[Rfam]
Nucleotides: 077
Stems, first nucleotide, its partner, number of pairs: 013046006021077007028040001030038001050067007
Number, partner (000 for none) and nucleotide at each position: 001000a002000a003000u004000u005000g006000u007000g008000a009000u010000g011000u012000a013046g014045g015044g016043g017042u018041c019000a020000u021077u022076g023075u024074a025073g026072a027071a028040g029000a030038g031000u032000g033000c034000u035000c036000g037000u038030c039000g040028c041018g042017a043016c044015c045014c046013c047000u048000g049000c050067c051066a052065g053064c054063c055062c056061u057000u058000u059000u060000c061056a062055g063054g064053g065052c066051u067050g068000c069000a070000a071027u072026u073025c074024u075023a076022c077021a